[Rfam]
This 121-nucleotide sequence from Candidatus Profftia tarda belongs to the Rfam family "Ribosomal S15 leader". The family is grouped with related families in Rfam's "Ribosomal Protein S15 Leader clan". The source organism's lineage runs through Bacteria, Pseudomonadota, Gammaproteobacteria, Enterobacterales and Candidatus Profftia. The E. coli Ribosomal S15 gene 5' UTR can form two alternative structures. One that is a series of three hairpins, The other includes a pseudoknot. This structure causes translational regulation of the S15 protein. The alignment of this family contains only the final two hairpins which are conserved in other species, and also includes the complete region that forms the alternate structures.
RNA sequence: UUCAUCAGCUUAAUUAGAGAUUGGCUCUAUCUUGCUAAUAAUUUUUUGAAUUUGGAGUAAAAUAAUGUCUCUAAAUAUUAGAGUCAAGGAUCAAAUUGUUAAUGACUUUGGUCGUAACGCU
Numbered sequence: 001u002u003c004a005u006c007a008g009c010u011u012a013a014u015u016a017g018a019g020a021u022u023g024g025c026u027c028u029a030u031c032u033u034g035c036u037a038a039u040a041a042u043u044u045u046u047u048g049a050a051u052u053u054g055g056a057g058u059a060a061a062a063u064a065a066u067g068u069c070u071c072u073a074a075a076u077a078u079u080a081g082a083g084u085c086a087a088g089g090a091u092c093a094a095a096u097u098g099u100u101a102a103u104g105a106c107u108u109u110g111g112u113c114g115u116a117a118c119g120c121u
Base pairs, nucleotide, nucleotide: 007026008025009024010023012021051075052074053073054072055071056070057069